[Rfam]
RNA sequence: AGUGCAAAACGUUCUAUCGCUCCCGGCGCUUUGUUUGGGAGAGGAAAGUCCGGGCAACACAGAGCAUCCUGCUUCCUAACGGGAAGGCGCCGGCAGCCGGCGACAGCAAGUGCCACAGAAAAUAUACCGCCCUGCAGUAAUGACGGGUAAGGGUGAAAACGUGAGGUAAGAGCUCACGGCUUUUCCGGGCGACCGGGAUCGCGGUAAACCUCAGGAGUUGAAAAACCAAAUAGGUCCCGGAAGCGGAGCUGCUCGUUUCCGUAUCCGCCAACAGGCGGAUCGCCGGGAUGGGUAGGUUGCUUGAACCUGUCAGCAAUGGCAGGGCCAGAUUAAUGAUAGAAACCACGCCCCUUAAAAAGGCGUGGAACAGAACCCGGCUUACAGGUUUGCAGCUGCAA
Dot-bracket structure: ((((((((.(((((((((.(((((((........)))))))....[[[.[[[[[((((........((((((((((.....)))))(((((.......)))).)((...(((((............((((((..((....))..))))..)).......((((((.......))))))....((((((....))))))....)))..)))))))))))))...((((......((((((............................(.........).....)))))).....)))).......(((((((....)))))))...........)))))))...............................]]]]]]]].).).)))))).))....